RNA sequence: UCUAGAAAAAGGCAAACUUCUCCGAAAGGGAAGGACGCAAAGCUAUGAGCCUAACCGUUUUUCAAACGCAUGGUUGUCAGGUUGCCUGG
Number, nucleotide and partner (000 for none) at each position: 001u000002c000003u000004a000005g000006a000007a000008a000009a000010a000011g000012g038013c037014a000015a000016a000017c033018u032019u031020c030021u000022c029023c028024g000025a000026a000027a000028g023029g022030g020031a019032a018033g017034g000035a000036c000037g013038c012039a000040a000041a083042g082043c081044u080045a000046u079047g078048a077049g074050c073051c072052u000053a000054a000055c000056c068057g067058u066059u065060u000061u000062u000063c000064a000065a059066a058067c057068g056069c000070a000071u000072g051073g050074u049075u000076g000077u048078c047079a046080g044081g043082u042083u041084g000085c000086c000087u000088g000089g000